RNA sequence: UUUGCGGCGGUCUCUAAUUCGCUUGGUGCAGGUCGGGAACUAUCGCCGCGCCGGCGGCUGAGCGAGCACGGUUGCGUCGUCGUCUCCGGCGAAUUUAGCUCCCGCCUUGCAUCAACUGAAUCGGAGCCCGCGGUGAAU
Numbered sequence: 001u002u003u004g005c006g007g008c009g010g011u012c013u014c015u016a017a018u019u020c021g022c023u024u025g026g027u028g029c030a031g032g033u034c035g036g037g038a039a040c041u042a043u044c045g046c047c048g049c050g051c052c053g054g055c056g057g058c059u060g061a062g063c064g065a066g067c068a069c070g071g072u073u074g075c076g077u078c079g080u081c082g083u084c085u086c087c088g089g090c091g092a093a094u095u096u097a098g099c100u101c102c103c104g105c106c107u108u109g110c111a112u113c114a115a116c117u118g119a120a121u122c123g124g125a126g127c128c129c130g131c132g133g134u135g136a137a138u
Stems, first nucleotide, its partner, number of pairs: 013125002017121004023115010034104005040098002
Background:
A member of the RNA family "MIR168 microRNA precursor family" from Ipomoea nil, 138 nucleotides long. Its family is annotated with miRNA-mediated post-transcriptional gene silencing and RISC complex in the Gene Ontology. A reference for the family is Jagadeeswaran et al. (2009), "Cloning and characterization of small RNAs from Medicago truncatula reveals four novel legume-specific microRNA families", New Phytol. The base pairs follow the family's consensus structure, which was predicted with WAR. The organism belongs to Ipomoea, within Eukaryota. The match comes from Rfam's covariance-model search (106 bits).